[Rfam]
RNA sequence: UCACCGAAAAGGCAAACUUAUCGAAAGAUAAGGACGCAAAGCUAGAUAGGACCUAAACGAAAAUCGUAUGGUAGCCAGCUGUCGAA
Numbered sequence: 001u002c003a004c005c006g007a008a009a010a011g012g013c014a015a016a017c018u019u020a021u022c023g024a025a026a027g028a029u030a031a032g033g034a035c036g037c038a039a040a041g042c043u044a045g046a047u048a049g050g051a052c053c054u055a056a057a058c059g060a061a062a063a064u065c066g067u068a069u070g071g072u073a074g075c076c077a078g079c080u081g082u083c084g085a086a
Stems, first nucleotide, its partner, number of pairs: 012037002017032006040080004049076002051072003058066003
RNA: c-di-GMP-I riboswitch aptamer
Organism: Alkalibacter saccharofermentans